Bacillaceae-1 RNA: a 66-nucleotide RNA from Solibacillus sp. R5-41.

[Rfam]
Nucleotides: 066
Stems, first nucleotide, its partner, number of pairs: 011048007024038005052066005
Number, partner (000 for none) and nucleotide at each position: 001000u002000c003000u004000g005000g006000a007000u008000a009000a010000g011048c012047a013046a014045a015044g016043g017042c018000u019000a020000a021000a022000a023000c024038g025037u026036c027035a028034c029000g030000u031000c032000c033000u034028g035027u036026g037025a038024c039000a040000a041000c042017g043016c044015c045014u046013u047012u048011g049000u050000g051000a052066u053065c054064a055063a056062c057000g058000u059000c060000g061000u062056g063055u064054u065053g066052a
Description:
The base pairs follow the family's consensus structure, which is taken from published work.